[Rfam]
RNA sequence: AAAAAGGGCAUCUGUUGUGACUGACACAGUUAGGACGGCUUUUUCUGUUCUUACUGCGGAAUCGAUAUCAAGAGAUUUCGGAUGCGCAAUUUUUAUAAACAGGGACUGCUAAUGACCGUUAGUCUUAACGUCCCA
Numbered sequence: 001a002a003a004a005a006g007g008g009c010a011u012c013u014g015u016u017g018u019g020a021c022u023g024a025c026a027c028a029g030u031u032a033g034g035a036c037g038g039c040u041u042u043u044u045c046u047g048u049u050c051u052u053a054c055u056g057c058g059g060a061a062u063c064g065a066u067a068u069c070a071a072g073a074g075a076u077u078u079c080g081g082a083u084g085c086g087c088a089a090u091u092u093u094u095a096u097a098a099a100c101a102g103g104g105a106c107u108g109c110u111a112a113u114g115a116c117c118g119u120u121a122g123u124c125u126u127a128a129c130g131u132c133c134c135a
Stems, first nucleotide, its partner, number of pairs: 008085005013026005027056004032051007057080007103133004108129001110127003114124003